Shown here is a 586-nucleotide part of an RNA from Corynebacterium gerontici, a member of the family "Bacterial large subunit ribosomal RNA". The organism belongs to Corynebacterium, within Bacteria.

RNA sequence: UGGAUGCCUUGGCAUUUCGAGCCGAUGAAGGACGUGGAAGGCCGCGAUAGGCCUCGGGGAGUUGUCAAUCAAGCGUUGAUCCGAGGGUGUCCGAAUGGGGAAACCUGGCCACUGUGAUUGGUGGUGACCCUAGUGUGAAUGCAUAGCGCUAGUGGGGGUAGACGUAGGGAAGUGAAACAUCUCAGUACCUACAGGAAGAGAAAACAAUUGUGAUUCUGCUAGUAGUGGCGAACGAACGUGGAUGAGGCUAAACCGUAUGCGUGUGAUACCUGUGCCAGGGUUGCGUGUGUGGUGUUGUGGGGCGUGGCUGUUCGUGGUGGCAUGACACGAGAGCAUGAUUGAUGCUGUAAGCGGAAGUGGUGUGGAAUCGCCUGCCGGAGAAGGUGAGAGUCCUGUACGUGAAUGCAGUGUUGGUGGUGUUGGGCCAUGUGUUAUACCCCGAGUAGCAGCGGGCUCGUGGAAUCUGCUGUGAAUCUGCCGGGACCACCCGGUAAGCCUAAAUACUCCGAAAUGACCGAUAGCGGAUGUAGUACCGUGAGGGAAUGGUGAAAAGUACCCCGGGAGGGGAGUGAAAGAGUACCUGAAA
Numbered sequence: 001u002g003g004a005u006g007c008c009u010u011g012g013c014a015u016u017u018c019g020a021g022c023c024g025a026u027g028a029a030g031g032a033c034g035u036g037g038a039a040g041g042c043c044g045c046g047a048u049a050g051g052c053c054u055c056g057g058g059g060a061g062u063u064g065u066c067a068a069u070c071a072a073g074c075g076u077u078g079a080u081c082c083g084a085g086g087g088u089g090u091c092c093g094a095a096u097g098g099g100g101a102a103a104c105c106u107g108g109c110c111a112c113u114g115u116g117a118u119u120g121g122u123g124g125u126g127a128c129c130c131u132a133g134u135g136u137g138a139a140u141g142c143a144u145a146g147c148g149c150u151a152g153u154g155g156g157g158g159u160a161g162a163c164g165u166a167g168g169g170a171a172g173u174g175a176a177a178c179a180u181c182u183c184a185g186u187a188c189c190u191a192c193a194g195g196a197a198g199a200g201a202a203a204a205c206a207a208u209u210g211u212g213a214u215u216c217u218g219c220u221a222g223u224a225g226u227g228g229c230g231a232a233c234g235a236a237c238g239u240g241g242a243u244g245a246g247g248c249u250a251a252a253c254c255g256u257a258u259g260c261g262u263g264u265g266a267u268a269c270c271u272g273u274g275c276c277a278g279g280g281u282u283g284c285g286u287g288u289g290u291g292g293u294g295u296u297g298u299g300g301g302g303c304g305u306g307g308c309u310g311u312u313c314g315u316g317g318u319g320g321c322a323u324g325a326c327a328c329g330a331g332a333g334c335a336u337g338a339u340u341g342a343u344g345c346u347g348u349a350a351g352c353g354g355a356a357g358u359g360g361u362g363u364g365g366a367a368u369c370g371c372c373u374g375c376c377g378g379a380g381a382a383g384g385u386g387a388g389a390g391u392c393c394u395g396u397a398c399g400u401g402a403a404u405g406c407a408g409u410g411u412u413g414g415u416g417g418u419g420u421u422g423g424g425c426c427a428u429g430u431g432u433u434a435u436a437c438c439c440c441g442a443g444u445a446g447c448a449g450c451g452g453g454c455u456c457g458u459g460g461a462a463u464c465u466g467c468u469g470u471g472a473a474u475c476u477g478c479c480g481g482g483a484c485c486a487c488c489c490g491g492u493a494a495g496c497c498u499a500a501a502u503a504c505u506c507c508g509a510a511a512u513g514a515c516c517g518a519u520a521g522c523g524g525a526u527g528u529a530g531u532a533c534c535g536u537g538a539g540g541g542a543a544u545g546g547u548g549a550a551a552a553g554u555a556c557c558c559c560g561g562g563a564g565g566g567g568a569g570u571g572a573a574a575g576a577g578u579a580c581c582u583g584a585a586a
Base pairs, nucleotide, nucleotide: 006581007546008545011516012515013513014512015511016510017509018508019507020505021504022158023157030092031091032090033046034045035044052086053085054084055083056082057081058080061074062073063072097106098105099104108125109124110123111122112121113120128155129154130152131151132150133149134148135147136146163194164192165191166190167189168188174181175180204211205210214501215242216241217240218239219238225233226232245498246497247496248495253292254291255290256289257288258287259286260285261284262283263282299440300439301438303429304428305427306426307425338415339414340413341412342411343410344409345408346407347406348405349404351400352399353398357373359372360371361370362369376380382394383393384392446470447469448468449467450466451465452464453463477492478491479490480489481488533540534539556567557566558565559564